[Rfam]
RNA: Guanidine-I riboswitch aptamer
Organism: Aquabacterium sp.
RNA sequence: CGAAAUGGUGGCUAGGGUUCCGGUUUGGUGCAAAUCAAAUGCCUGGUCCGAGAGCCAUCGGCCUGAGUUGGCACAUUCACCAACGCAGGCUCCACGGCGGGACAAAAGCCCGGGAGAU
Dot-bracket structure: ......((((((..((...(((((((((......))))))..).)).))....))))))((((((.(((((........))))).)))))).(.[...(((.......))).)..]..
Numbered sequence: 001c002g003a004a005a006u007g008g009u010g011g012c013u014a015g016g017g018u019u020c021c022g023g024u025u026u027g028g029u030g031c032a033a034a035u036c037a038a039a040u041g042c043c044u045g046g047u048c049c050g051a052g053a054g055c056c057a058u059c060g061g062c063c064u065g066a067g068u069u070g071g072c073a074c075a076u077u078c079a080c081c082a083a084c085g086c087a088g089g090c091u092c093c094a095c096g097g098c099g100g101g102a103c104a105a106a107a108g109c110c111c112g113g114g115a116g117a118u
Stems, first nucleotide, its partner, number of pairs: 007059006015049002020046002022043001023040006060091006067084005093113001095116001099111003